[Rfam]
RNA sequence: AGUCCCCACACACUUGACCCGUGUACGGCAGGAGCGGGGGACCCAUCAGGUACGACUGCCUGUCCCGGUCUCCGCGACAGGCUUGGGGUGCAGCCGUGCAGCGCGCGGCCGGGCAGCUCCAGCCCGAACCCGACAGCUGACCUCGCAGGCGCCGGAGAGGAAUU
Numbered sequence: 001a002g003u004c005c006c007c008a009c010a011c012a013c014u015u016g017a018c019c020c021g022u023g024u025a026c027g028g029c030a031g032g033a034g035c036g037g038g039g040g041a042c043c044c045a046u047c048a049g050g051u052a053c054g055a056c057u058g059c060c061u062g063u064c065c066c067g068g069u070c071u072c073c074g075c076g077a078c079a080g081g082c083u084u085g086g087g088g089u090g091c092a093g094c095c096g097u098g099c100a101g102c103g104c105g106c107g108g109c110c111g112g113g114c115a116g117c118u119c120c121a122g123c124c125c126g127a128a129c130c131c132g133a134c135a136g137c138u139g140a141c142c143u144c145g146c147a148g149g150c151g152c153c154g155g156a157g158a159g160g161a162a163u164u
Stems, first nucleotide, its partner, number of pairs: 003033003034146006044085002086131003094108004111125004
RNA: c-di-AMP riboswitch aptamer (ydaO/yuaA leader)